RNA sequence: AGAGGUCACAAGUGUGAAGACAUAGCGGAAGUGCUCACAGCACGACUCUAUCAGGUUCCAAUGAAUCUGUGAAUUAUGUU
Numbered sequence: 001a002g003a004g005g006u007c008a009c010a011a012g013u014g015u016g017a018a019g020a021c022a023u024a025g026c027g028g029a030a031g032u033g034c035u036c037a038c039a040g041c042a043c044g045a046c047u048c049u050a051u052c053a054g055g056u057u058c059c060a061a062u063g064a065a066u067c068u069g070u071g072a073a074u075u076a077u078g079u080u
Stems, first nucleotide, its partner, number of pairs: 016048001018047002021044001024080004029075002031043003052069007
RNA: Mammalian CPEB3 ribozyme
Organism: Alligator mississippiensis